Manganese Mn2+ riboswitch aptamer (yybP-ykoY): a 184-nucleotide RNA sequence from Sphingomonas sp. WG. The base pairs follow the family's consensus structure. NCBI's taxonomy places the organism under Bacteria, Pseudomonadati, Pseudomonadota, Alphaproteobacteria, Sphingomonas. Rfam links the family to the GO term manganese ion binding. From the family's description: This RNA was originally discovered in E. coli during a large scale screen and was named SraF. The family was later found to exist upstream of related families of protein genes in many bacteria, including the the yybP and ykoK genes in B. subtilis. The specific functions of these proteins are unknown, but this structured RNA element may be involved in their genetic regulation as a riboswitch.
RNA sequence: GCCCCCGUCAUCUGGGGAGUAGCCACCGGCGCAUAGCGCCGUGCGCCCGCGUCAACAUACUUGGUCGAGAGGCCAUGGCGCAGGCGGAGCCGAUCGCGGCUCAGGCGAGACCAAUGGCGUCGUAUCUCCGCUCAUGCCGGGCGGGGAGAUUCGAUGUCGUUGGAUUCGCGUUCCGCCCGGCCCU
Numbered sequence: 001g002c003c004c005c006c007g008u009c010a011u012c013u014g015g016g017g018a019g020u021a022g023c024c025a026c027c028g029g030c031g032c033a034u035a036g037c038g039c040c041g042u043g044c045g046c047c048c049g050c051g052u053c054a055a056c057a058u059a060c061u062u063g064g065u066c067g068a069g070a071g072g073c074c075a076u077g078g079c080g081c082a083g084g085c086g087g088a089g090c091c092g093a094u095c096g097c098g099g100c101u102c103a104g105g106c107g108a109g110a111c112c113a114a115u116g117g118c119g120u121c122g123u124a125u126c127u128c129c130g131c132u133c134a135u136g137c138c139g140g141g142c143g144g145g146g147a148g149a150u151u152c153g154a155u156g157u158c159g160u161u162g163g164a165u166u167c168g169c170g171u172u173c174c175g176c177c178c179g180g181c182c183c184u
Stems, first nucleotide, its partner, number of pairs: 027043001045085003049081006062075005086184002089181004